[Rfam]
RNA sequence: UUGAGGUGCAGGGCUUAGCUCGCUUUGUGAACAGUUGAGUAGAAAGCUAAUGUUCACAGUGGCUAAGUUCCGCACUUCAC
Numbered sequence: 001u002u003g004a005g006g007u008g009c010a011g012g013g014c015u016u017a018g019c020u021c022g023c024u025u026u027g028u029g030a031a032c033a034g035u036u037g038a039g040u041a042g043a044a045a046g047c048u049a050a051u052g053u054u055c056a057c058a059g060u061g062g063c064u065a066a067g068u069u070c071c072g073c074a075c076u077u078c079a080c
Stems, first nucleotide, its partner, number of pairs: 011070010027057007

This 80-nucleotide RNA sequence from Merluccius polli belongs to the Rfam family "mir-27 microRNA precursor family". A reference for the family is Chen et al. (2005), "The developmental miRNA profiles of zebrafish as determined by small RNA cloning", Genes Dev. Taxonomically the source falls in Merluccius (Eukaryota, Neopterygii, Ctenosquamata, Gadiformes). A search with the family's covariance model found it, with a score of 70 bits.